[Rfam]
RNA sequence: GGCGCCAGCGCGGGCAACGGAAUCCCAAAAGCAGCUGUCUCUGCUGCGCCCAGCUGCCCUGGGGUUUCGUUACCCGCGCUCCCGCCA
Numbered sequence: 001g002g003c004g005c006c007a008g009c010g011c012g013g014g015c016a017a018c019g020g021a022a023u024c025c026c027a028a029a030a031g032c033a034g035c036u037g038u039c040u041c042u043g044c045u046g047c048g049c050c051c052a053g054c055u056g057c058c059c060u061g062g063g064g065u066u067u068c069g070u071u072a073c074c075c076g077c078g079c080u081c082c083c084g085c086c087a
Stems, first nucleotide, its partner, number of pairs: 009078005017070009028060001031057007
RNA: mir-191 microRNA precursor family
Organism: Dicaeum eximium